[Rfam]
The family of this 140-nucleotide RNA sequence from Nannospalax galili is "Small Cajal body specific RNA 11". Rfam links the family to the GO terms RNA processing, Cajal body and nucleolus. About the family: scaRNAs are a specific class of small nuclear RNAs which localise to the Cajal bodies and guide the modification of RNA polymerase II transcribed spliceosomal RNAs U1, U2, U4, U5 and U12. ACA57 belongs to the H/ACA box class of guide RNAs as it has the predicted hairpin-hinge-hairpin-tail structure, conserved H/ACA-box motifs and is found associated with GAR1. ACA57 is predicted to guide the pseudouridylation of the U5 spliceosomal RNA at position U43. It scores 141 bits against the family's covariance model. NCBI's taxonomy places the organism under Eukaryota, Gnathostomata, Teleostomi, Muroidea, Nannospalax.
RNA sequence: UUAUCUUGUCCUGUGCCUUCUCAGCUUCCCUGUGCUCAGCUCUAACAGGGUGGUCUGGCAGGACACACAGUAAUUUCCCUCUCAGUUUAGGAGGGCUGUCCUAAGAAUAGGGCUGACUCUUAAAGGCGCGAGAGGACAAU
Numbered sequence: 001u002u003a004u005c006u007u008g009u010c011c012u013g014u015g016c017c018u019u020c021u022c023a024g025c026u027u028c029c030c031u032g033u034g035c036u037c038a039g040c041u042c043u044a045a046c047a048g049g050g051u052g053g054u055c056u057g058g059c060a061g062g063a064c065a066c067a068c069a070g071u072a073a074u075u076u077c078c079c080u081c082u083c084a085g086u087u088u089a090g091g092a093g094g095g096c097u098g099u100c101c102u103a104a105g106a107a108u109a110g111g112g113c114u115g116a117c118u119c120u121u122a123a124a125g126g127c128g129c130g131a132g133a134g135g136a137c138a139a140u
Stems, first nucleotide, its partner, number of pairs: 002065001004063005010058002024054003028050006078135006085127004091121005097115001098113006